[Rfam]
RNA sequence: UGGAGGGCAAGCAUAACUGGUGUGUGUCUUAGGCUUCAAACCUAUAGAGCGCUUAGGUGUCUAAGUGCUGAGGAGUUCGAUUCUUCUGCCCUCUC
Numbered sequence: 001u002g003g004a005g006g007g008c009a010a011g012c013a014u015a016a017c018u019g020g021u022g023u024g025u026g027u028c029u030u031a032g033g034c035u036u037c038a039a040a041c042c043u044a045u046a047g048a049g050c051g052c053u054u055a056g057g058u059g060u061c062u063a064a065g066u067g068c069u070g071a072g073g074a075g076u077u078c079g080a081u082u083c084u085u086c087u088g089c090c091c092u093c094u095c
Base pairs, nucleotide, nucleotide: 002094003093004092005091006090007089008088009087011027012026013025014024015023017022030044031043032042033041048069049068050067051066052065053064054063072086073085074084075083
RNA: Selenocysteine transfer RNA